[Rfam]
RNA sequence: UCGGUUCCGGUUCACGUCCGCUUCAGUCCAGGUCUGGACGGGCGACCCGGCGGCC
Number, nucleotide and partner (000 for none) at each position: 001u000002c000003g055004g054005u053006u000007c050008c049009g048010g047011u000012u000013c000014a000015c044016g043017u042018c041019c040020g039021c000022u037023u036024c000025a000026g000027u000028c000029c000030a000031g000032g000033u000034c000035u000036g023037g022038a000039c020040g019041g018042g017043c016044g015045a000046c000047c010048c009049g008050g007051c000052g000053g005054c004055c003
L31-Actinobacteria ribosomal protein leader: a 55-nucleotide RNA sequence. Pairs were carried over by alignment from the consensus structure, which is taken from published work. The family's RNA type in Rfam is cis-regulatory leader.